[Rfam]
RNA sequence: GGGGGCGUUCUGGAUUCGACAGGGGUAGUUUGAGCUCAAGUGGCAUGUCGAGGUUACGGCUCGUAAAACGUUACACGCCAAUAAUAACUGGCAAAACAAAUAAUUACUCUUUAGCAGCUGCUUAAGCACUGUUAAAGGAUCCUUUCCAGCAUCACCCGUGUGCCGGGUUUAGGGUCUCAACUUAAGCGGGAUACGCUAGAUAUCUUACGUCUGGAGACGUCUAGAAGAGCAUAAUCAGACUAGCUACUAGGAAGCCUGUUGGUUGGCAGAAUAGUUAGAGAAUCUAAAAUAAACCGACUACACAUGUAGAAGCUUGAGUGGCGAUAUCUUUGGACGUGGGUUCGACUCCCACCGCCUCCACCA
Numbered sequence: 001g002g003g004g005g006c007g008u009u010c011u012g013g014a015u016u017c018g019a020c021a022g023g024g025g026u027a028g029u030u031u032g033a034g035c036u037c038a039a040g041u042g043g044c045a046u047g048u049c050g051a052g053g054u055u056a057c058g059g060c061u062c063g064u065a066a067a068a069c070g071u072u073a074c075a076c077g078c079c080a081a082u083a084a085u086a087a088c089u090g091g092c093a094a095a096a097c098a099a100a101u102a103a104u105u106a107c108u109c110u111u112u113a114g115c116a117g118c119u120g121c122u123u124a125a126g127c128a129c130u131g132u133u134a135a136a137g138g139a140u141c142c143u144u145u146c147c148a149g150c151a152u153c154a155c156c157c158g159u160g161u162g163c164c165g166g167g168u169u170u171a172g173g174g175u176c177u178c179a180a181c182u183u184a185a186g187c188g189g190g191a192u193a194c195g196c197u198a199g200a201u202a203u204c205u206u207a208c209g210u211c212u213g214g215a216g217a218c219g220u221c222u223a224g225a226a227g228a229g230c231a232u233a234a235u236c237a238g239a240c241u242a243g244c245u246a247c248u249a250g251g252a253a254g255c256c257u258g259u260u261g262g263u264u265g266g267c268a269g270a271a272u273a274g275u276u277a278g279a280g281a282a283u284c285u286a287a288a289a290u291a292a293a294c295c296g297a298c299u300a301c302a303c304a305u306g307u308a309g310a311a312g313c314u315u316g317a318g319u320g321g322c323g324a325u326a327u328c329u330u331u332g333g334a335c336g337u338g339g340g341u342u343c344g345a346c347u348c349c350c351a352c353c354g355c356c357u358c359c360a361c362c363a
Stems, first nucleotide, its partner, number of pairs: 001359007020332008029323001034319008044306005049063004054073001056071003109137009138176006145167003149163004155190005196224006203217002209241001212238001214236001244278003247274003254267003258298004263291001336352005
RNA: transfer-messenger RNA